This 171-nucleotide RNA from Sousa chinensis belongs to the Rfam family "Small nucleolar RNA SNORA81". Gene Ontology terms of the family: RNA processing and nucleolus. On this family, see Gu et al., Nucleic Acids Res 2005: "A novel experimental approach for systematic identification of box H/ACA snoRNAs from eukaryotes". By type it is an H/ACA-box small nucleolar RNA. A search with the family's covariance model found it, with a score of 78 bits. Rfam 15.1 lists 1,161 matches to the family in 643 species. The organism belongs to Sousa, within Eukaryota.
[Rfam]
RNA sequence: UUUAACUUAUUUAAUCUCUGUGCUAAAAUUGCAGUAACUAGUAUCUGUAGUGUCUUAGUGCUUGUAAUAAAGCUGACAGAGUAAACGCAAGGAAAAAAACAACCAUACCAGAUAGUAGAAAAACUGCAGGUAACUCCAGGGUAUUUUGUUCUAAGAUUUGGUACAGAAUUU
Numbered sequence: 001u002u003u004a005a006c007u008u009a010u011u012u013a014a015u016c017u018c019u020g021u022g023c024u025a026a027a028a029u030u031g032c033a034g035u036a037a038c039u040a041g042u043a044u045c046u047g048u049a050g051u052g053u054c055u056u057a058g059u060g061c062u063u064g065u066a067a068u069a070a071a072g073c074u075g076a077c078a079g080a081g082u083a084a085a086c087g088c089a090a091g092g093a094a095a096a097a098a099a100c101a102a103c104c105a106u107a108c109c110a111g112a113u114a115g116u117a118g119a120a121a122a123a124c125u126g127c128a129g130g131u132a133a134c135u136c137c138a139g140g141g142u143a144u145u146u147u148g149u150u151c152u153a154a155g156a157u158u159u160g161g162u163a164c165a166g167a168a169u170u171u
Stems, first nucleotide, its partner, number of pairs: 018081002021078002024075002029070003034062001037059005043053002106163007126142001127140001